Rfam assigns this 84-nucleotide RNA sequence from Butyrivibrio sp. ob235 to the family "ZMP/ZTP riboswitch aptamer (pfl RNA motif)". The base pairs follow the family's consensus structure, which is taken from published work. A search with the family's covariance model found it, with a score of 66 bits. NCBI's taxonomy places the organism under Bacteria, Bacillota, Clostridia, Lachnospirales, Butyrivibrio.
RNA sequence: UGUGUGUCGCACAACUGGCGGAUAUGUGGGUAACCACAGGGGAGUGCGAAAAUAUUUUGAAUGUCGACCGCCUGGGCAACCGUU
Numbered sequence: 001u002g003u004g005u006g007u008c009g010c011a012c013a014a015c016u017g018g019c020g021g022a023u024a025u026g027u028g029g030g031u032a033a034c035c036a037c038a039g040g041g042g043a044g045u046g047c048g049a050a051a052a053u054a055u056u057u058u059g060a061a062u063g064u065c066g067a068c069c070g071c072c073u074g075g076g077c078a079a080c081c082g083u084u
Base pairs, nucleotide, nucleotide: 005051007049008048009047010046011045012044015041016040017072018071019070020069021068026037027036028035029034062078063077064076065075